[Rfam]
RNA sequence: GUGAAAUAUACGUUUGUACCGCAGACAGCAGGGGCGCAAGUCGCUUAAAUUAUCCCUGCCGAGGACAAUGAAUUCAGUAAACAUCUUUUGAUGCUGACUUUAUGCCUCUGUGUCUGUAAUGGACCAGAGGCUUUUCUUAUGGAAAC
Numbered sequence: 001g002u003g004a005a006a007u008a009u010a011c012g013u014u015u016g017u018a019c020c021g022c023a024g025a026c027a028g029c030a031g032g033g034g035c036g037c038a039a040g041u042c043g044c045u046u047a048a049a050u051u052a053u054c055c056c057u058g059c060c061g062a063g064g065a066c067a068a069u070g071a072a073u074u075c076a077g078u079a080a081a082c083a084u085c086u087u088u089u090g091a092u093g094c095u096g097a098c099u100u101u102a103u104g105c106c107u108c109u110g111u112g113u114c115u116g117u118a119a120u121g122g123a124c125c126a127g128a129g130g131c132u133u134u135u136c137u138u139a140u141g142g143a144a145a146c
Base pairs, nucleotide, nucleotide: 028059029058030057031056032055033054034044035043036042104131105130106129107128108127109126110125113122
The record is a 146-nucleotide RNA from Planococcus halotolerans, which matches "Ribosomal protein L10 leader" in Rfam. Taxonomically the source falls in Planococcus (Bacteria, Bacillota, Bacilli, Caryophanales). Rfam classes the family as a cis-regulatory leader. This family is a putative r-protein leader autoregulatory structure found in B. subtilis and other low-GC Gram-positive bacteria. It is located in the 5' untranslated regions of mRNAs encoding ribosomal proteins L10 and L12 (rplJ-rplL). A Rho-independent transcription terminator structure that is probably involved in regulation is included at the 3' end.